[Rfam]
RNA sequence: UUGUUAGUGAGGUACAUCCUUACCUGUUACUCCAUACGUGGAGUUUCAGAACAUGAUGAAUGGAGAGCAAUGAGAGAUGAUUAAACUCUCUGCCAUGUUGGGAACUGCAACACCCUUCAUGGCCCAUUCUGAU
Numbered sequence: 001u002u003g004u005u006a007g008u009g010a011g012g013u014a015c016a017u018c019c020u021u022a023c024c025u026g027u028u029a030c031u032c033c034a035u036a037c038g039u040g041g042a043g044u045u046u047c048a049g050a051a052c053a054u055g056a057u058g059a060a061u062g063g064a065g066a067g068c069a070a071u072g073a074g075a076g077a078u079g080a081u082u083a084a085a086c087u088c089u090c091u092g093c094c095a096u097g098u099u100g101g102g103a104a105c106u107g108c109a110a111c112a113c114c115c116u117u118c119a120u121g122g123c124c125c126a127u128u129c130u131g132a133u
Base pairs, nucleotide, nucleotide: 024049025048026047029044030043031042032041033040072090073089075087076086078083094122100116101115102114

Background: Shown here is a 133-nucleotide RNA sequence from Menidia menidia, a member of the family "U8 small nucleolar RNA". NCBI's taxonomy places the organism under Eukaryota, Craniata, Clupeocephala, Eurypterygia, Menidia. A reference for the family is Peculis (1997), "The sequence of the 5' end of the U8 small nucleolar RNA is critical for 5.8S and 28S rRNA maturation", Mol Cell Biol. It scores 94 bits against the family's covariance model. Rfam classes the family as a C/D-box small nucleolar RNA.